[Rfam]
RNA sequence: AUCGAGGCUAGAGUCACGCUUGGGUACAGCUAUUGCCUUAGUGUGCCAGCAUCCUUGAAGAACAACUGCUAACCUUAUUCACUGGCUCCAGGCCCCUAUGGCGUGAUCAGGCACCAGGUCAGUGACAUGC
Numbered sequence: 001a002u003c004g005a006g007g008c009u010a011g012a013g014u015c016a017c018g019c020u021u022g023g024g025u026a027c028a029g030c031u032a033u034u035g036c037c038u039u040a041g042u043g044u045g046c047c048a049g050c051a052u053c054c055u056u057g058a059a060g061a062a063c064a065a066c067u068g069c070u071a072a073c074c075u076u077a078u079u080c081a082c083u084g085g086c087u088c089c090a091g092g093c094c095c096c097u098a099u100g101g102c103g104u105g106a107u108c109a110g111g112c113a114c115c116a117g118g119u120c121a122g123u124g125a126c127a128u129g130c
Stems, first nucleotide, its partner, number of pairs: 002058005007052001013046001015045006023037004069122002072119004082110004087105001089103001
Description
A member of the RNA family "Small nucleolar RNA SNORA3/SNORA45 family" from Phyllostomus discolor, 130 nucleotides long. Its Rfam clan is "SNORA3 clan". Gene Ontology terms of the family: nucleolus and RNA processing.